[Rfam]
RNA sequence: GGACUAUGCUUUACUAUGGAGCAGAAACACUCCGUGGGCUUCUCAUAGUGUACCCAUGCCAGAGUAAAUUGCAGCCUCGAACCAUUGCCCAGCCUCCUUACCUGUGGGCUGUCAGCACUGAAGAGGGUUGUACAGUA
Numbered sequence: 001g002g003a004c005u006a007u008g009c010u011u012u013a014c015u016a017u018g019g020a021g022c023a024g025a026a027a028c029a030c031u032c033c034g035u036g037g038g039c040u041u042c043u044c045a046u047a048g049u050g051u052a053c054c055c056a057u058g059c060c061a062g063a064g065u066a067a068a069u070u071g072c073a074g075c076c077u078c079g080a081a082c083c084a085u086u087g088c089c090c091a092g093c094c095u096c097c098u099u100a101c102c103u104g105u106g107g108g109c110u111g112u113c114a115g116c117a118c119u120g121a122a123g124a125g126g127g128u129u130g131u132a133c134a135g136u137a
Base pairs, nucleotide, nucleotide: 001054002053003051004050011048012047013046016043018041020040021039022037072130073129074128075127076126077125083120084119088115090111091110092109093108094107095106
This 137-nucleotide RNA sequence from Myotis brandtii belongs to the Rfam family "Small nucleolar RNA SNORA42/SNORA80 family". From the family's description: The members of this family belong to the H/ACA class of snoRNAs that guide the sites of modification of uridines to pseudouridines. Human ACA42 (SNORA42) was cloned from HeLa cells by immunoprecipitation with anti-GAR1 antibody. Its is predicted to guide the pseudouridylation of residues U109 and U572 of 18S rRNA. ACA42 shares the same host gene with ACA26, ACA46, ACA50. A reference for the family is Schattner et al. (2006), "A computational screen for mammalian pseudouridylation guide H/ACA RNAs", RNA.